[Rfam]
RNA sequence: GAAAUCUGAAUAACCUACACAGGGCCUUCAGUAAGACCCUUUGUACUAUUUUUUGGAAACCUCUGCUCAGGUAGAGGUUA
Numbered sequence: 001g002a003a004a005u006c007u008g009a010a011u012a013a014c015c016u017a018c019a020c021a022g023g024g025c026c027u028u029c030a031g032u033a034a035g036a037c038c039c040u041u042u043g044u045a046c047u048a049u050u051u052u053u054u055g056g057a058a059a060c061c062u063c064u065g066c067u068c069a070g071g072u073a074g075a076g077g078u079u080a
Stems, first nucleotide, its partner, number of pairs: 022039003026035003058079009